[Rfam]
RNA sequence: UUGGAGGAUUUGAAUACUUCAACUUGUAUACUUGGAGGAUUUGAAGAGUUCAUCUUGAAUACUUGGAGGAUUUGAAGAAUUCUACC
Numbered sequence: 001u002u003g004g005a006g007g008a009u010u011u012g013a014a015u016a017c018u019u020c021a022a023c024u025u026g027u028a029u030a031c032u033u034g035g036a037g038g039a040u041u042u043g044a045a046g047a048g049u050u051c052a053u054c055u056u057g058a059a060u061a062c063u064u065g066g067a068g069g070a071u072u073u074g075a076a077g078a079a080u081u082c083u084a085c086c
Stems, first nucleotide, its partner, number of pairs: 001084001003082003009076006017068005025059001027057002033052004
A member of the RNA family "MIR8024 microRNA precursor family" from Solanum commersonii, 86 nucleotides long.
The organism belongs to Solanum, within Eukaryota.
The match comes from Rfam's covariance-model search (78 bits).
Pairs were carried over by alignment from the consensus structure, which was predicted with RNAalifold.
Its family is annotated with miRNA-mediated post-transcriptional gene silencing and RISC complex in the Gene Ontology.